[Rfam]
RNA sequence: CAAUGCCACGCAGAAGAGUCCGGCCACACCAGGCCGGCGCCGACGGAGCAACCGCCCCGGAAACUCUCAGGCACCAGGACUGCGCAGGCUAG
Numbered sequence: 001c002a003a004u005g006c007c008a009c010g011c012a013g014a015a016g017a018g019u020c021c022g023g024c025c026a027c028a029c030c031a032g033g034c035c036g037g038c039g040c041c042g043a044c045g046g047a048g049c050a051a052c053c054g055c056c057c058c059g060g061a062a063a064c065u066c067u068c069a070g071g072c073a074c075c076a077g078g079a080c081u082g083c084g085c086a087g088g089c090u091a092g
Base pairs, nucleotide, nucleotide: 006087009084010083011082012081013080020037021036022035023034039072040071041070042068043067046066047065048064052060053059
RNA: Glycine riboswitch aptamer
Organism: Bordetella ansorpii